The family of this 73-nucleotide sequence from Colocasia esculenta is "mir-190 microRNA precursor family".
The family has 76 seed sequences and 1,667 matches in Rfam 15.1.
Its family is annotated with miRNA-mediated post-transcriptional gene silencing and RISC complex in the Gene Ontology.
The organism belongs to Colocasia, within Eukaryota.
The base pairs follow the family's consensus structure, which was predicted with RNAalifold.
RNA sequence: UAGCCGUCUACAUAUGUUUGAUAUGUAGACGGUUUUUGAAACCGUCUACAUAUCAAAUAUAUGUAGACGACUA
Number, nucleotide and partner (000 for none) at each position: 001u000002a000003g000004c000005c069006g068007u067008c066009u065010a000011c063012a062013u061014a060015u059016g058017u057018u056019u055020g054021a053022u052023a051024u050025g049026u000027a047028g046029a045030c044031g043032g000033u000034u000035u000036u000037u000038g000039a000040a000041a000042c000043c031044g030045u029046c028047u027048a000049c025050a024051u023052a022053u021054c020055a019056a018057a017058u016059a015060u014061a013062u012063g011064u000065a009066g008067a007068c006069g005070a000071c000072u000073a000